[Rfam]
RNA sequence: GGGAAGAAUCUGUGAAGCUCAGGAGGGAUAGCGCCAUGGACGAUCACUAUGCCACUAUUAAUUGGGUUCUUUGAUCGUCAUUAGCGCUAUCCAUCCUGAGUUUCAUCGGUCCUUAUU
Numbered sequence: 001g002g003g004a005a006g007a008a009u010c011u012g013u014g015a016a017g018c019u020c021a022g023g024a025g026g027g028a029u030a031g032c033g034c035c036a037u038g039g040a041c042g043a044u045c046a047c048u049a050u051g052c053c054a055c056u057a058u059u060a061a062u063u064g065g066g067u068u069c070u071u072u073g074a075u076c077g078u079c080a081u082u083a084g085c086g087c088u089a090u091c092c093a094u095c096c097u098g099a100g101u102u103u104c105a106u107c108g109g110u111c112c113u114u115a116u117u
Stems, first nucleotide, its partner, number of pairs: 010108001016102009026092009